[Rfam]
Nucleotides: 118
Base pairs, nucleotide, nucleotide: 007118008117009116010115011114012113013112014111015110016109025078026077027076028075029050030049031048032047033046034045035044056072057071058070059069060068061067062066083104084103085102086101087100088099089098
Number, partner (000 for none) and nucleotide at each position: 001000g002000g003000a004000u005000a006000a007118g008117g009116u010115c011114u012113g013112u014111g015110c016109u017000c018000a019000g020000g021000c022000u023000u024000u025078c026077a027076g028075u029050a030049c031048g032047a033046u034045g035044u036000a037000a038000g039000g040000u041000a042000c043000c044035a045034c046033a047032u048031c049030g050029u051000c052000a053000u054000c055000a056072c057071g058070u059069g060068u061067c062066c063000u064000g065000c066062g067061g068060a069059c070058a071057c072056g073000g074000a075028a076027c077026u078025g079000u080000u081000a082000c083104g084103g085102a086101u087100u088099g089098u090000a091000c092000g093000a094000a095000u096000u097000a098089g099088c100087g101086a102085u103084c104083c105000a106000c107000a108000c109016g110015g111014c112013a113012u114011a115010g116009g117008c118007c
A member of the RNA family "DUF3268 RNA", 118 nucleotides long. It is annotated as a small RNA. It is one of the family's seed sequences.